[Rfam]
RNA sequence: UUGGGUGAAAUCAAUGUGGAACCUCUACACUUUGAAAAUGGAACCCAAAUAAAGUAGUAGGACAUACAUUGAUUUUAGAGAA
Numbered sequence: 001u002u003g004g005g006u007g008a009a010a011u012c013a014a015u016g017u018g019g020a021a022c023c024u025c026u027a028c029a030c031u032u033u034g035a036a037a038a039u040g041g042a043a044c045c046c047a048a049a050u051a052a053a054g055u056a057g058u059a060g061g062a063c064a065u066a067c068a069u070u071g072a073u074u075u076u077a078g079a080g081a082a
Stems, first nucleotide, its partner, number of pairs: 001082002006077013025060003029055006
RNA: MIR5269 microRNA precursor family